[Rfam]
RNA sequence: CUCGCACCGCCUGUACCCUUGCUACAACCUUUUUAUAUGACAAAUAGGUGAGCAAAUGUUCAGGUGUUUGCGCGA
Numbered sequence: 001c002u003c004g005c006a007c008c009g010c011c012u013g014u015a016c017c018c019u020u021g022c023u024a025c026a027a028c029c030u031u032u033u034u035a036u037a038u039g040a041c042a043a044a045u046a047g048g049u050g051a052g053c054a055a056a057u058g059u060u061c062a063g064g065u066g067u068u069u070g071c072g073c074g075a
Base pairs, nucleotide, nucleotide: 003072004071005070006069008066009065010064011063012062013061016058019055020054022052023051025050026049028048029047030046